[Rfam]
RNA sequence: UUCCAAGGGGAAAAGGUUAUAGCGAUUAUGAGAAAUUAAGCCAUAAGCGUAUAGCUUUUUCCCUUUGGCA
Numbered sequence: 001u002u003c004c005a006a007g008g009g010g011a012a013a014a015g016g017u018u019a020u021a022g023c024g025a026u027u028a029u030g031a032g033a034a035a036u037u038a039a040g041c042c043a044u045a046a047g048c049g050u051a052u053a054g055c056u057u058u059u060u061c062c063c064u065u066u067g068g069c070a
Stems, first nucleotide, its partner, number of pairs: 003068005009062003013058002017054005026046005
This 70-nucleotide RNA sequence from Bombus vosnesenskii belongs to the Rfam family "mir-965 microRNA precursor family".
Pairs were carried over by alignment from the consensus structure, which was predicted with RNAalifold.
It scores 66 bits against the family's covariance model.